Background
A member of the RNA family "Plastid-rps18 3UTR RNA" from Coptis chinensis, 57 nucleotides long. Lineage of the source: Eukaryota > Tracheophyta > Magnoliopsida > Ranunculaceae > Coptis. Rfam classes the family as a cis-regulatory element. A search with the family's covariance model found it, with a score of 77 bits. From the family's description: Plastid rps18 is a non-coding RNA (ncRNA) present in plastids. It was identified as a short stem-loop motif in the 3 prime untranslate region (3UTR) of rps18 gene. For this family Rfam cites "Retrograde signaling in plants: A critical review focusing on the GUN pathway and beyond" (Richter et al., Plant Commun, 2023).
RNA sequence: UGCAAGUAUUUUACGAUUAAGAAGCAACUGCCUCUUGUAUAUAUCAUUUAUGGAUAU
Numbered sequence: 001u002g003c004a005a006g007u008a009u010u011u012u013a014c015g016a017u018u019a020a021g022a023a024g025c026a027a028c029u030g031c032c033u034c035u036u037g038u039a040u041a042u043a044u045c046a047u048u049u050a051u052g053g054a055u056a057u
Stems, first nucleotide, its partner, number of pairs: 018037005024031002